[Rfam]
RNA sequence: UCAAAGUUCCAUCUACAAAUGGAUAAGACUGGUGUAUUAGUGUAUACCGAGUUAAUGAACAUAAAGGAGCAAUAAUCAAUUUCCCUUUCUAGCAAGAAGUUUGGUUUUGCUCCUUU
Numbered sequence: 001u002c003a004a005a006g007u008u009c010c011a012u013c014u015a016c017a018a019a020u021g022g023a024u025a026a027g028a029c030u031g032g033u034g035u036a037u038u039a040g041u042g043u044a045u046a047c048c049g050a051g052u053u054a055a056u057g058a059a060c061a062u063a064a065a066g067g068a069g070c071a072a073u074a075a076u077c078a079a080u081u082u083c084c085c086u087u088u089c090u091a092g093c094a095a096g097a098a099g100u101u102u103g104g105u106u107u108u109g110c111u112c113c114u115u116u
Stems, first nucleotide, its partner, number of pairs: 008023005063116010074105001078101002081098003

Shown here is a 116-nucleotide RNA from Ziziphus jujuba, a member of the family "Plastid-psbA-1 3UTR RNA". Taxonomically the source falls in Ziziphus jujuba (Eukaryota, Streptophytina, Tracheophyta, Mesangiospermae). Plastid psbA-1 is a non-coding RNA (ncRNA) present in plastids. It was identified in inverted repeat sequences in the 3 prime untranslate region (3UTR) of photosystem II quinone-binding protein (psbA). The family's consensus secondary structure was predicted with LocARNA. A search with the family's covariance model found it, with a score of 90 bits. For this family Rfam cites "Retrograde signaling in plants: A critical review focusing on the GUN pathway and beyond" (Richter et al., Plant Commun, 2023).